Shown here is a 48-nucleotide RNA from Pseudolabrys taiwanensis, a member of the family "Guanidine-II riboswitch aptamer (mini-ykkC)".
NCBI's taxonomy places the organism under Bacteria, Pseudomonadati, Alphaproteobacteria, Hyphomicrobiales, Pseudolabrys.
It scores 40 bits against the family's covariance model.
The family's consensus secondary structure is taken from published work.
Simpler in structure and has fewer highly conserved nucleotide positions than the ykkC-yxkD leader. Despite this each of its two stem-loop structures directly bind free guanidine. Therefore, mini-ykkC RNA motif represents a distinct class of guanidine-sensing RNAs.
RNA sequence: CGGUCGGGACGGCCCGACCGCCAAUCUAUCCGCGCGGGGACGGCCCCC
Number, nucleotide and partner (000 for none) at each position: 001c020002g019003g018004u017005c016006g015007g014008g013009a000010c000011g000012g000013c008014c007015c006016g005017a004018c003019c002020g001021c000022c000023a000024a000025u000026c000027u000028a000029u000030c000031c000032g000033c000034g000035c000036g047037g046038g045039g044040a000041c000042g000043g000044c039045c038046c037047c036048c000